[Rfam]
RNA: Small nucleolar RNA SNORD116
Organism: Hipposideros armiger
RNA sequence: GGAUCAACGAUGACUUCAAAAUGGAUGUCAUUGGAAUCUGAACAAAAUGAGUGACAGAAUCACUUAUGUGAGCUGAGGUCC
Numbered sequence: 001g002g003a004u005c006a007a008c009g010a011u012g013a014c015u016u017c018a019a020a021a022u023g024g025a026u027g028u029c030a031u032u033g034g035a036a037u038c039u040g041a042a043c044a045a046a047a048u049g050a051g052u053g054a055c056a057g058a059a060u061c062a063c064u065u066a067u068g069u070g071a072g073c074u075g076a077g078g079u080c081c
Stems, first nucleotide, its partner, number of pairs: 001081005025052002028050002031045003